The record is a 160-nucleotide RNA sequence from Bacillus sp. FJAT-49736, which matches "Manganese Mn2+ riboswitch aptamer (yybP-ykoY)" in Rfam. Gene Ontology term of the family: manganese ion binding. The family has 29 seed sequences and 1,126 matches in Rfam 15.1.
RNA sequence: GACAAUGUCAAAGGGGAGUAGCUUUGGAUGUGAAAGCAUCUAAACGAAGUCGUCAUUACAUGGAGCAUUCCAUCGGCUUUGUUGACAUUACAUAUGUCUAGCAAGACCUUUGCCUAUAAAGGGCAGAGGUCUUUUUUGCGUCCUUUAUAGGGUUAUUGUU
Numbered sequence: 001g002a003c004a005a006u007g008u009c010a011a012a013g014g015g016g017a018g019u020a021g022c023u024u025u026g027g028a029u030g031u032g033a034a035a036g037c038a039u040c041u042a043a044a045c046g047a048a049g050u051c052g053u054c055a056u057u058a059c060a061u062g063g064a065g066c067a068u069u070c071c072a073u074c075g076g077c078u079u080u081g082u083u084g085a086c087a088u089u090a091c092a093u094a095u096g097u098c099u100a101g102c103a104a105g106a107c108c109u110u111u112g113c114c115u116a117u118a119a120a121g122g123g124c125a126g127a128g129g130u131c132u133u134u135u136u137u138g139c140g141u142c143c144u145u146u147a148u149a150g151g152g153u154u155a156u157u158g159u160u
Stems, first nucleotide, its partner, number of pairs: 026041003043083010060073005084160004089155002